Shown here is a 209-nucleotide RNA sequence from Streptomyces sp. WM4235, a member of the family "Streptomyces RNA 1601". The family's RNA type in Rfam is small RNA.

RNA sequence: GACGACCGGCCGGAGACGUAUGUCCCCGGCCCACAAGUGGAGGCUCCGAUCUCCCACCUGACCGCCCUCCGGGGUGGCGGGUCACCGGUCAGGCGGUAUCCAUCGUUCCGUACGGACGAUGGAAAGCUGCCCGAGUUGCGCCCCGCGUUCGCAUGCGGCGGUGCUCCGGUCUUUUGGAGCCCCUGCCUGUGCCCGGCGGGGCUUUUUUC
Numbered sequence: 001g002a003c004g005a006c007c008g009g010c011c012g013g014a015g016a017c018g019u020a021u022g023u024c025c026c027c028g029g030c031c032c033a034c035a036a037g038u039g040g041a042g043g044c045u046c047c048g049a050u051c052u053c054c055c056a057c058c059u060g061a062c063c064g065c066c067c068u069c070c071g072g073g074g075u076g077g078c079g080g081g082u083c084a085c086c087g088g089u090c091a092g093g094c095g096g097u098a099u100c101c102a103u104c105g106u107u108c109c110g111u112a113c114g115g116a117c118g119a120u121g122g123a124a125a126g127c128u129g130c131c132c133g134a135g136u137u138g139c140g141c142c143c144c145g146c147g148u149u150c151g152c153a154u155g156c157g158g159c160g161g162u163g164c165u166c167c168g169g170u171c172u173u174u175u176g177g178a179g180c181c182c183c184u185g186c187c188u189g190u191g192c193c194c195g196g197c198g199g200g201g202c203u204u205u206u207u208u209c
Base pairs, nucleotide, nucleotide: 004090005089006088007087008086009085012027013026028083029082030081031080032079034060035059037057038056039055040054041052042051062077063076064075065074066073067072092131093130094129095128096127100122101121102120103119104118105117106116107115140202141201142200143199144198145197146195147194154191155190156189157187158186159185160183161182163180164179165178166177167176

Record summary: Identified by deep sequencing of transcriptome at the end of exponential growth phase. Appears longer on northern blot than sequencing transcript. Streptomyces specific. A reference for the family is Vockenhuber et al. (2011), "Deep sequencing-based identification of small non-coding RNAs in Streptomyces coelicolor", RNA Biol. The match comes from Rfam's covariance-model search (160 bits).